[Rfam]
RNA sequence: ACUCUCGGCUCGGGGUCCUGCGCGGAAAAUAUGCGCGGGUGAGAAAUACCCGUUGAACCUGAUUGAGGUAAUCCUCGCGCAGGAAAGCAUGCAAUCCAUCGC
Numbered sequence: 001a002c003u004c005u006c007g008g009c010u011c012g013g014g015g016u017c018c019u020g021c022g023c024g025g026a027a028a029a030u031a032u033g034c035g036c037g038g039g040u041g042a043g044a045a046a047u048a049c050c051c052g053u054u055g056a057a058c059c060u061g062a063u064u065g066a067g068g069u070a071a072u073c074c075u076c077g078c079g080c081a082g083g084a085a086a087g088c089a090u091g092c093a094a095u096c097c098a099u100c101g102c
Stems, first nucleotide, its partner, number of pairs: 008088003011052004016046001017039008058083004064077004
Rfam assigns this 102-nucleotide sequence from Herminiimonas arsenicoxydans to the family "TPP riboswitch aptamer (THI element)". The match comes from Rfam's covariance-model search (56 bits).